The record is a 175-nucleotide RNA sequence from Jonesia denitrificans, which matches "M-box riboswitch aptamer (ykoK leader)" in Rfam. Rfam's curators put it in the seed alignment. M-box riboswitch, also know as ykoK leader is described as a metaloregulatory RNA that sense divalent metals and function as a genetic control element of genes related to divalent metal transport in bacteria. It was first reported upstream of the B.subtilis ykoK gene and genes with related functions in other bacteria. A reference for the family is Ramesh and Winkler (2010), "Magnesium-sensing riboswitches in bacteria", RNA Biol.
RNA sequence: UAGGUGUCUCGUUAGGUGAGGCUCCAUCGCGAACAUAGGCCACUCAUCUGACGACAUCGAGAGAUGCCCAAGAUGAGGACAAAUCCUCCCGGCUUAAGGGUUGAUUCCAAGUGGCUUCCUACGUUUGGCGUAGGACACGUCGCGGUGUGUCAAAGCUCUUACGUGGACGCGCCAC
Numbered sequence: 001u002a003g004g005u006g007u008c009u010c011g012u013u014a015g016g017u018g019a020g021g022c023u024c025c026a027u028c029g030c031g032a033a034c035a036u037a038g039g040c041c042a043c044u045c046a047u048c049u050g051a052c053g054a055c056a057u058c059g060a061g062a063g064a065u066g067c068c069c070a071a072g073a074u075g076a077g078g079a080c081a082a083a084u085c086c087u088c089c090c091g092g093c094u095u096a097a098g099g100g101u102u103g104a105u106u107c108c109a110a111g112u113g114g115c116u117u118c119c120u121a122c123g124u125u126u127g128g129c130g131u132a133g134g135a136c137a138c139g140u141c142g143c144g145g146u147g148u149g150u151c152a153a154a155g156c157u158c159u160u161a162c163g164u165g166g167a168c169g170c171g172c173c174a175c
Stems, first nucleotide, its partner, number of pairs: 005171003009167002011162002013097001015157003020151003025147008039115005045075005055066004082106004088100003117135006